[Rfam]
RNA: Flavivirus DB element
Organism: Orthoflavivirus nilense
RNA sequence: CACGGCCUAGCCUGGCUGAAGCUGUAGGUCAGGGGAAGGACUAGAGGUUAGUGGAGACCCCGUGCCACAA
Numbered sequence: 001c002a003c004g005g006c007c008u009a010g011c012c013u014g015g016c017u018g019a020a021g022c023u024g025u026a027g028g029u030c031a032g033g034g035g036a037a038g039g040a041c042u043a044g045a046g047g048u049u050a051g052u053g054g055a056g057a058c059c060c061c062g063u064g065c066c067a068c069a070a
Stems, first nucleotide, its partner, number of pairs: 001064005006039002011033007046059004